[Rfam]
RNA sequence: GACCCAAACCCUAAAUGAGGCAGAAUAGUAAGUGACUUUACUUACUAUUCUGCCUCAUUUAGGGUUUGGGUUC
Numbered sequence: 001g002a003c004c005c006a007a008a009c010c011c012u013a014a015a016u017g018a019g020g021c022a023g024a025a026u027a028g029u030a031a032g033u034g035a036c037u038u039u040a041c042u043u044a045c046u047a048u049u050c051u052g053c054c055u056c057a058u059u060u061a062g063g064g065u066u067u068g069g070g071u072u073c
Base pairs, nucleotide, nucleotide: 001072002071003070004069005068006067007066008065009064011062012061013060014059015058016057017056018055019054020053021052022051023050025048026047027046028045029044030043031042032041033040034039
Annotation
Rfam assigns this 73-nucleotide sequence from Eumeta japonica to the family "mir-5928 microRNA precursor family". NCBI's taxonomy places the organism under Eukaryota, Altocrustacea, Allotriocarida, Ditrysia, Eumeta. The family has 5 seed sequences and 1,672 matches in Rfam 15.1. It scores 60 bits against the family's covariance model. Its family is annotated with miRNA-mediated post-transcriptional gene silencing and RISC complex in the Gene Ontology.